[Rfam]
RNA sequence: GGGGCUGAUCGGUUUCGACUGGGUACAUCGCGAUGGGGGAAGCGUGCCGGUGCAGGCAAGAGACCACCGUAAGCGUCGUUGCAAAAUGAUAAGCGCCGAGAACACUCAGCGCGACUUCGCUCUCGCUGCCUAAGCGACAGCAAGUCCGUCAGACCGGGAGCGCCCUCGGCCCGGACCCUGGCGUCGCAAGAGGGACAAACCUUACAGCCCGGUCACGGGGUUGUAGGGGACAUCAAACAGUGACUGGGAUCGUCAUCGCAGCUUGUCCACGUGACUGUGAGAUCCAAGUAGAGACAUAGUGGACUGCGCACGGAGAAGCCCCAUCAAAGUGACACAGGACCCGGGUUCAAUUCCCGGCAGCUCCACCA
Dot-bracket structure: (((((((...........(((.((...(...(((((((....((((((((((...[[[[.....))))).........]]]].......................................((.((((.........)))).))..((((((.(((((....[[[[[..)))))...))))))......]]]]].....(((((((((..[[[[[[...)))))))))...........]]]]]].(((((.((((......(.[[[[...[[)..)))))))))...........]]..]]]]...)))))......)))))))..)...)).)))...(((((.......))))))))))))....
The family of this 368-nucleotide sequence from Hoyosella rhizosphaerae is "transfer-messenger RNA".
Clan: tRNA clan.
The family's consensus secondary structure is taken from published work.
It is annotated as a non-coding RNA gene.
Rfam links the family to the GO term RNA catabolic process.
The source organism's lineage runs through Bacteria, Bacillati, Actinomycetota, Actinomycetes and Hoyosella.